Rfam assigns this 179-nucleotide sequence from Pseudooctadecabacter jejudonensis to the family "Ruegeria cis52 sRNA".

[Rfam]
RNA sequence: UGCGUAGGGCGUGCUUGAUCACGAUAUUUGGAAAGCUCACGCCUUUGAGGCGGGCGGUGCGGAUGUAUUGCGCGGUCAUCACUUCGGUCAUCGACGCGCGGGUCAUACGGGCAAUGUAGCCCAUGCCGUAAAGCGCGAUGGUGAUCACCGGCAAGAAGAAGUUGUUGAAGGUGGCGUCA
Numbered sequence: 001u002g003c004g005u006a007g008g009g010c011g012u013g014c015u016u017g018a019u020c021a022c023g024a025u026a027u028u029u030g031g032a033a034a035g036c037u038c039a040c041g042c043c044u045u046u047g048a049g050g051c052g053g054g055c056g057g058u059g060c061g062g063a064u065g066u067a068u069u070g071c072g073c074g075g076u077c078a079u080c081a082c083u084u085c086g087g088u089c090a091u092c093g094a095c096g097c098g099c100g101g102g103u104c105a106u107a108c109g110g111g112c113a114a115u116g117u118a119g120c121c122c123a124u125g126c127c128g129u130a131a132a133g134c135g136c137g138a139u140g141g142u143g144a145u146c147a148c149c150g151g152c153a154a155g156a157a158g159a160a161g162u163u164g165u166u167g168a169a170g171g172u173g174g175c176g177u178c179a
Stems, first nucleotide, its partner, number of pairs: 005140002009136004015130001016128002020125002028123001030121002040111001042109001046105003051100002054097001055075001057073006082096001084094003145179001147177001149174001151172002154165001156163002

Description:
The family has 2 seed sequences and 277 matches in Rfam 15.1. The match comes from Rfam's covariance-model search (117 bits).